[Rfam]
RNA: mir-144 microRNA precursor family
Organism: Cyprinus carpio
RNA sequence: CCUCUAGACAGGAUAUCAUCGUAUACUGUAAGUUCAUUAUUGAGACACUACAGUAUAGAUGAUGUACUAUCCAGGGGGU
Numbered sequence: 001c002c003u004c005u006a007g008a009c010a011g012g013a014u015a016u017c018a019u020c021g022u023a024u025a026c027u028g029u030a031a032g033u034u035c036a037u038u039a040u041u042g043a044g045a046c047a048c049u050a051c052a053g054u055a056u057a058g059a060u061g062a063u064g065u066a067c068u069a070u071c072c073a074g075g076g077g078g079u
Stems, first nucleotide, its partner, number of pairs: 007071002010068002013065008022057009032046003